RNA sequence: UUACCUCUUGCUGGAUUACUCCUCCUCCCAAAUCCAGCAAGUUGAAUGCAGCACCUCCUCCUCCCAUAGCUGCAUUCGGAAUCAAAGGCUGCGCAUCUCCUCCCGCGCGGCCUUUUUC
Numbered sequence: 001u002u003a004c005c006u007c008u009u010g011c012u013g014g015a016u017u018a019c020u021c022c023u024c025c026u027c028c029c030a031a032a033u034c035c036a037g038c039a040a041g042u043u044g045a046a047u048g049c050a051g052c053a054c055c056u057c058c059u060c061c062u063c064c065c066a067u068a069g070c071u072g073c074a075u076u077c078g079g080a081a082u083c084a085a086a087g088g089c090u091g092c093g094c095a096u097c098u099c100c101u102c103c104c105g106c107g108c109g110g111c112c113u114u115u116u117u118c
Base pairs, nucleotide, nucleotide: 007041008040009039011037012036013035014034015033016032017031044077045076046075047074048073049072050071051070052069086113087112088111089110090109091108092107093106094105
Dot-bracket structure: ......(((.(((((((.............))))))).)))..(((((((((................)))))))))........(((((((((..........))))))))).....
Rfam assigns this 118-nucleotide RNA from Ditibartonella apis to the family "Alphaproteobacterial ar14".
It scores 87 bits against the family's covariance model.
The family has 118 seed sequences and 784 matches in Rfam 15.1.
A reference for the family is Robledo et al. (2017), "A conserved alpha-proteobacterial small RNA contributes to osmoadaptation and symbiotic efficiency of rhizobia on legume roots", Environ Microbiol.
The family's RNA type in Rfam is small RNA.
About the family: Smr14C2 was renamed NfeR1 (Nodule Formation Efficiency RNA) highly expressed in salt stress and during the symbiotic interaction on legume roots.